[Rfam]
Shown here is a 63-nucleotide RNA sequence from Oryza sativa, a member of the family "MIR2907 microRNA precursor family". Taxonomically the source falls in Oryza sativa (Eukaryota, Streptophytina, Oryzeae, Oryza). Gene Ontology terms of the family: miRNA-mediated post-transcriptional gene silencing and RISC complex.
RNA sequence: GCGCCCCUACCUCCGUCCACUCGGCCGCCACGUGGUAGCCGAACGAGGGCCUCGGAGUGGCGC
Numbered sequence: 001g002c003g004c005c006c007c008u009a010c011c012u013c014c015g016u017c018c019a020c021u022c023g024g025c026c027g028c029c030a031c032g033u034g035g036u037a038g039c040c041g042a043a044c045g046a047g048g049g050c051c052u053c054g055g056a057g058u059g060g061c062g063c
Stems, first nucleotide, its partner, number of pairs: 001061002005057001007055002015050004021042005028035002